The record is a 72-nucleotide RNA, which matches "S15-Halobacteria ribosomal protein leader" in Rfam. The family is grouped with related families in Rfam's "Ribosomal Protein S15 Leader clan".
[Rfam]
RNA sequence: UCGGGAAGCGCACAGCCGCAAAUCUGACUGUGUCACCCGAUUCGUCGUGGUGACUCGAGAUUGCGGACGUGC
Numbered sequence: 001u002c003g004g005g006a007a008g009c010g011c012a013c014a015g016c017c018g019c020a021a022a023u024c025u026g027a028c029u030g031u032g033u034c035a036c037c038c039g040a041u042u043c044g045u046c047g048u049g050g051u052g053a054c055u056c057g058a059g060a061u062u063g064c065g066g067a068c069g070u071g072c
Stems, first nucleotide, its partner, number of pairs: 010072004016066006024059002032054006

Rfam classes the family as a cis-regulatory leader.